[Rfam]
RNA: Iron response element II
RNA sequence: UAUUUAUCGGUGGCAGUGCCCACCAUAAAGU
Numbered sequence: 001u002a003u004u005u006a007u008c009g010g011u012g013g014c015a016g017u018g019c020c021c022a023c024c025a026u027a028a029a030g031u
Stems, first nucleotide, its partner, number of pairs: 003029005009024005014018001